[Rfam]
The record is a 96-nucleotide RNA, which matches "malK-III RNA" in Rfam. Pairs were carried over by alignment from the consensus structure, which is taken from published work.

RNA sequence: AGAGUCGGCACCUCGUAUGGGAUCCGUCCGCGCCGCCUGGCGGCCGUGAUGCAAGGGUCCGCGAUGACCCGGCAGGGCUGGAGGAGACCGCACAUG
Numbered sequence: 001a002g003a004g005u006c007g008g009c010a011c012c013u014c015g016u017a018u019g020g021g022a023u024c025c026g027u028c029c030g031c032g033c034c035g036c037c038u039g040g041c042g043g044c045c046g047u048g049a050u051g052c053a054a055g056g057g058u059c060c061g062c063g064a065u066g067a068c069c070c071g072g073c074a075g076g077g078c079u080g081g082a083g084g085a086g087a088c089c090g091c092a093c094a095u096g
Base pairs, nucleotide, nucleotide: 014063015062016061020060021059022058023057024056025055026050027049028048033043034042035041036040